[Rfam]
Background: Shown here is a 114-nucleotide RNA from Trifolium medium, a member of the family "MIR2593 microRNA precursor family". NCBI's taxonomy places the organism under Eukaryota, Viridiplantae, Streptophyta, Fabaceae, Trifolium. A search with the family's covariance model found it, with a score of 97 bits. Its family is annotated with RISC complex and miRNA-mediated post-transcriptional gene silencing in the Gene Ontology.
RNA sequence: AUAUAAGAAAAUUUUUACUUUUUAGAUUCAUGGAAUGAUUGAUGUAUCUAGUCCUUUUUAAGGCCAAAUACAUCAAUCAUUCCAUGAAUCUAAAAAGUAAAAUUUUUCUUAUAU
Numbered sequence: 001a002u003a004u005a006a007g008a009a010a011a012u013u014u015u016u017a018c019u020u021u022u023u024a025g026a027u028u029c030a031u032g033g034a035a036u037g038a039u040u041g042a043u044g045u046a047u048c049u050a051g052u053c054c055u056u057u058u059u060a061a062g063g064c065c066a067a068a069u070a071c072a073u074c075a076a077u078c079a080u081u082c083c084a085u086g087a088a089u090c091u092a093a094a095a096a097g098u099a100a101a102a103u104u105u106u107u108c109u110u111a112u113a114u
Base pairs, nucleotide, nucleotide: 002113003112004111005110006109007108008106009105010104011103012102014100015099018097019096020095021094022093023092024091025090027088028087029086030085031084032083033082034081035080036079037078038077039076040075041074042073043072044071049066051064052063